[Rfam]
RNA: TD-2 RNA
RNA sequence: ACCGCCAGGAUGGCGGUGGCUCCAAGCAAAAUCGAGUUCGCACUGCGAACUCGCAGCUAAAGAAUGAACACGGACGUUCAUUCUUUAGCGUGC
Numbered sequence: 001a002c003c004g005c006c007a008g009g010a011u012g013g014c015g016g017u018g019g020c021u022c023c024a025a026g027c028a029a030a031a032u033c034g035a036g037u038u039c040g041c042a043c044u045g046c047g048a049a050c051u052c053g054c055a056g057c058u059a060a061a062g063a064a065u066g067a068a069c070a071c072g073g074a075c076g077u078u079c080a081u082u083c084u085u086u087a088g089c090g091u092g093c
Stems, first nucleotide, its partner, number of pairs: 001017006033053009056089014